[Rfam]
This 72-nucleotide RNA sequence from Streptomyces sp. DI166 belongs to the Rfam family "tRNA". A search with the family's covariance model found it, with a score of 52 bits. Gene Ontology term of the family: triplet codon-amino acid adaptor activity. It is annotated as a transfer RNA.
RNA sequence: CCGGACGUGGAGCAGAGGCAGACUCGCCGCCUUGUCAGGGCGGAUACGCCGGUUCGAAUCCGGCCGUCCGGG
Number, nucleotide and partner (000 for none) at each position: 001c071002c070003g069004g068005a067006c066007g065008u000009g000010g025011a024012g023013c000014a000015g000016a000017g000018g000019c000020a000021g000022a000023c012024u011025c010026g000027c043028c042029g041030c040031c039032u000033u000034g000035u000036c000037a000038g000039g031040g030041c029042g028043g027044a000045u000046a000047c000048g064049c063050c062051g061052g060053u000054u000055c000056g000057a000058a000059u000060c052061c051062g050063g049064c048065c007066g006067u005068c004069c003070g002071g001072g000